The family of this 64-nucleotide RNA sequence from Salmo salar is "mir-17 microRNA precursor family".
On this family, see Lagos-Quintana et al., Science 2001: "Identification of novel genes coding for small expressed RNAs".
The sequence is in the family's curated seed alignment.
Rfam's curators write: This family represents the microRNA (miRNA) precursor mir-17, family, which includes mir-20, mir-91, and mir-103. miRNAs are transcribed as ~70nt precursors (modelled here) and subsequently processed by the Dicer enzyme to give a ~22nt product. In this case the mature sequence comes from the 3' arm of the precursor. The extents of the hairpin precursors are not generally known and are estimated based on hairpin prediction.
Rfam links the family to the GO terms RISC complex and miRNA-mediated post-transcriptional gene silencing.
Taxonomically the source falls in Salmo (Eukaryota, Gnathostomata, Teleostomi, Euteleosteomorpha).

[Rfam]
RNA sequence: UAAAGUGCUUACAGUGCAGGUAAUGGUUAUUCCCUAUAUCUACCGCAAUGUGAGCACUUCUGUC
Dot-bracket structure: (.(((((((((((.(((.((((..................))))))).)))))))))))..)..